A member of the RNA family "MIR403 microRNA precursor family" from Hibiscus trionum, 112 nucleotides long.
[Rfam]
RNA sequence: GCAUAUUUCAGGUCUGUGCGUGAAUCUAAUAAAACUGUACCGCAAAAACAAAAUUCUGGAAAAGGUGGAUUUGGUUUCAUGUUAGAUUCACGCACAAACUCGUAAUCUGUCU
Numbered sequence: 001g002c003a004u005a006u007u008u009c010a011g012g013u014c015u016g017u018g019c020g021u022g023a024a025u026c027u028a029a030u031a032a033a034a035c036u037g038u039a040c041c042g043c044a045a046a047a048a049c050a051a052a053a054u055u056c057u058g059g060a061a062a063a064g065g066u067g068g069a070u071u072u073g074g075u076u077u078c079a080u081g082u083u084a085g086a087u088u089c090a091c092g093c094a095c096a097a098a099c100u101c102g103u104a105a106u107c108u109g110u111c112u
Base pairs, nucleotide, nucleotide: 001110002109003108005106006105007104011100012099013098015096016095017094018093019092020091021090022089023088024087025086026085028083029082030081043067
A reference for the family is Mica et al. (2009), "High throughput approaches reveal splicing of primary microRNA transcripts and tissue specific expression of mature microRNAs in Vitis vinifera", BMC Genomics. The match comes from Rfam's covariance-model search (78 bits). Pairs were carried over by alignment from the consensus structure, which was predicted with WAR. Taxonomically the source falls in Hibiscus (Eukaryota, Streptophyta, Embryophyta, Spermatophyta).